[Rfam]
RNA sequence: UGAUCGCUUCGAAAUCUGUGAAUAAAGCAUGUGAUUGAAAAGCCAAGGCCAUACGGACAGCCGGAUCAAAAGCCGA
Numbered sequence: 001u002g003a004u005c006g007c008u009u010c011g012a013a014a015u016c017u018g019u020g021a022a023u024a025a026a027g028c029a030u031g032u033g034a035u036u037g038a039a040a041a042g043c044c045a046a047g048g049c050c051a052u053a054c055g056g057a058c059a060g061c062c063g064g065a066u067c068a069a070a071a072g073c074c075g076a
Stems, first nucleotide, its partner, number of pairs: 001068005006043004
Streptococcus sRNA SpF59 (ldcC RNA): a 76-nucleotide RNA sequence from Lactococcus hircilactis. A search with the family's covariance model found it, with a score of 55 bits. The family's RNA type in Rfam is small RNA.